Shown here is a 155-nucleotide sequence from Paractinoplanes atraurantiacus, a member of the family "c-di-AMP riboswitch aptamer (ydaO/yuaA leader)". The organism belongs to Paractinoplanes, within Bacteria. Pairs were carried over by alignment from the consensus structure. Gene Ontology terms of the family: regulation of gene expression and cyclic-di-AMP binding. The match comes from Rfam's covariance-model search (63 bits).
[Rfam]
RNA sequence: ACCGAGACACCGCGAAGGCAUUCGGGGCAGGGACGGGGGAACCACCAUCGGCCCGCGGCACCUCGGCGGGCCUUGGGGUGAAGCCGCCCCGGCGGCCGGGCAAUCCUUCCCGCCCGAACCCGACAGCUAACCUCGCAGGCGUGCCGGAAGGAUGU
Numbered sequence: 001a002c003c004g005a006g007a008c009a010c011c012g013c014g015a016a017g018g019c020a021u022u023c024g025g026g027g028c029a030g031g032g033a034c035g036g037g038g039g040a041a042c043c044a045c046c047a048u049c050g051g052c053c054c055g056c057g058g059c060a061c062c063u064c065g066g067c068g069g070g071c072c073u074u075g076g077g078g079u080g081a082a083g084c085c086g087c088c089c090c091g092g093c094g095g096c097c098g099g100g101c102a103a104u105c106c107u108u109c110c111c112g113c114c115c116g117a118a119c120c121c122g123a124c125a126g127c128u129a130a131c132c133u134c135g136c137a138g139g140c141g142u143g144c145c146g147g148a149a150g151g152a153u154g155u
Base pairs, nucleotide, nucleotide: 002032003030034135035134036133037132038131043075044074076121077120078119084095085094086093087092098115099114100113101112

This family represents a conserved RNA structure found upstream of the ydaO and yuaA genes in Bacillus subtilis and related genes in other bacteria.